Bacterial RNase P class A: a 324-nucleotide RNA sequence from Pseudozobellia thermophila. Ribonuclease P (RNase P) is a ubiquitous endoribonuclease, found in archaea, bacteria and eukarya as well as chloroplasts and mitochondria. Lineage of the source: Bacteria > Pseudomonadati > Flavobacteriales > Flavobacteriaceae > Pseudozobellia. Its Rfam clan is "RNaseP clan".
RNA sequence: UGAGCAGGCCACCUUGUCGCUGCCAUCCGAAUUAUUUCGGGUGGGAGAGGAAAGUCCGGACACCACAGUGCGGCAUAGCGGGUAACGCCCGUCGUCCGUUUUUUUGACGGAUAGGACAAGUGCAGCAGAAAGAAUGUACAGGUAAGGCUGUAGUGAAAUCAGGUAAACUCUAUGCGGUGAAACGCCAUGUAUAUCGGUGUUUGAGGGUUGCACGCCCAAGCCGAAGGGUAGGCGGUUCGAUUCCAGCAGCAAUGUUGGAACUAGAUAAAUGACAGGGAAGGGCCUUCGGGCCUUACAGAAUCCGGCUUAUGGCCUGCUUAUUUU
Numbered sequence: 001u002g003a004g005c006a007g008g009c010c011a012c013c014u015u016g017u018c019g020c021u022g023c024c025a026u027c028c029g030a031a032u033u034a035u036u037u038c039g040g041g042u043g044g045g046a047g048a049g050g051a052a053a054g055u056c057c058g059g060a061c062a063c064c065a066c067a068g069u070g071c072g073g074c075a076u077a078g079c080g081g082g083u084a085a086c087g088c089c090c091g092u093c094g095u096c097c098g099u100u101u102u103u104u105u106g107a108c109g110g111a112u113a114g115g116a117c118a119a120g121u122g123c124a125g126c127a128g129a130a131a132g133a134a135u136g137u138a139c140a141g142g143u144a145a146g147g148c149u150g151u152a153g154u155g156a157a158a159u160c161a162g163g164u165a166a167a168c169u170c171u172a173u174g175c176g177g178u179g180a181a182a183c184g185c186c187a188u189g190u191a192u193a194u195c196g197g198u199g200u201u202u203g204a205g206g207g208u209u210g211c212a213c214g215c216c217c218a219a220g221c222c223g224a225a226g227g228g229u230a231g232g233c234g235g236u237u238c239g240a241u242u243c244c245a246g247c248a249g250c251a252a253u254g255u256u257g258g259a260a261c262u263a264g265a266u267a268a269a270u271g272a273c274a275g276g277g278a279a280g281g282g283c284c285u286u287c288g289g290g291c292c293u294u295a296c297a298g299a300a301u302c303c304g305g306c307u308u309a310u311g312g313c314c315u316g317c318u319u320a321u322u323u324u
Stems, first nucleotide, its partner, number of pairs: 001320011012277007020047002023044008052308003056305005061179004068213004073175005078092005093114001094112007115170002120168002122164002183234004194224005205217004241260008